[Rfam]
RNA: Guanidine-II riboswitch aptamer (mini-ykkC)
Nucleotides: 043
Base pairs, nucleotide, nucleotide: 001020002019003018004017005016006015007014008013034043035042036041
Number, partner (000 for none) and nucleotide at each position: 001020u002019c003018u004017g005016g006015g007014g008013g009000a010000c011000g012000a013008c014007c015006c016005c017004c018003a019002g020001a021000c022000c023000c024000c025000c026000g027000g028000g029000g030000a031000c032000c033000c034043c035042g036041g037000g038000a039000c040000c041036c042035c043034g